[Rfam]
A member of the RNA family "tRNA" from Salmonella enterica, 71 nucleotides long. Lineage of the source: Bacteria > Gammaproteobacteria > Enterobacterales > Salmonella > Salmonella enterica subsp. enterica. The family's RNA type in Rfam is transfer RNA. It is one of the family's seed sequences.
RNA sequence: GCGGGCGUAGUUCAAUGGUAGAACGAGAGCUUCCCAAGCUCUAUACGAGGGUUCGAUUCCCUUCGCCCGCU
Numbered sequence: 001g002c003g004g005g006c007g008u009a010g011u012u013c014a015a016u017g018g019u020a021g022a023a024c025g026a027g028a029g030c031u032u033c034c035c036a037a038g039c040u041c042u043a044u045a046c047g048a049g050g051g052u053u054c055g056a057u058u059c060c061c062u063u064c065g066c067c068c069g070c071u
Stems, first nucleotide, its partner, number of pairs: 001070007010024004026042005047063005